[Rfam]
RNA sequence: UAAAAGGAGCAAUAACCCCUUUCUUGGUCUAUCAAGAGGGCGUUAUUGUUCCCUCUUUUUC
Numbered sequence: 001u002a003a004a005a006g007g008a009g010c011a012a013u014a015a016c017c018c019c020u021u022u023c024u025u026g027g028u029c030u031a032u033c034a035a036g037a038g039g040g041c042g043u044u045a046u047u048g049u050u051c052c053c054u055c056u057u058u059u060u061c
Base pairs, nucleotide, nucleotide: 002056004054006052007051008050009049010048011047012046013045014044015043016042017040018039019038022037023036024035025034026033